[Rfam]
RNA sequence: UCCACCGCUGAUUGCCCCGCGGCAUCGGUAUAUUCCUCUACUUGGGUACUUUCUCGAGAAGAGAUGAAAGCGCGUUUUUUUGUGGAUGUCUUUUGUGCGUGCGGCAAUGCUUCCCUUUUCCAACUUGCGUGGCGAGUUUUGAUGGGAACGAAUCAAAAACGAGUCCUUGCG
Numbered sequence: 001u002c003c004a005c006c007g008c009u010g011a012u013u014g015c016c017c018c019g020c021g022g023c024a025u026c027g028g029u030a031u032a033u034u035c036c037u038c039u040a041c042u043u044g045g046g047u048a049c050u051u052u053c054u055c056g057a058g059a060a061g062a063g064a065u066g067a068a069a070g071c072g073c074g075u076u077u078u079u080u081u082g083u084g085g086a087u088g089u090c091u092u093u094u095g096u097g098c099g100u101g102c103g104g105c106a107a108u109g110c111u112u113c114c115c116u117u118u119u120c121c122a123a124c125u126u127g128c129g130u131g132g133c134g135a136g137u138u139u140u141g142a143u144g145g146g147a148a149c150g151a152a153u154c155a156a157a158a159a160c161g162a163g164u165c166c167u168u169g170c171g
Stems, first nucleotide, its partner, number of pairs: 007029006014023003034067002036063004041058004045053002085165003088160002091158005110150001112147004122138007

Shown here is a 171-nucleotide part of an RNA from Beauveria bassiana, a member of the family "Ascomycota telomerase RNA". Gene Ontology terms of the family: telomerase activity, telomere maintenance via telomerase and telomerase catalytic core complex. Taxonomically the source falls in Beauveria (Eukaryota, Opisthokonta, Dikarya, Hypocreomycetidae). Clan: Telomerase clan.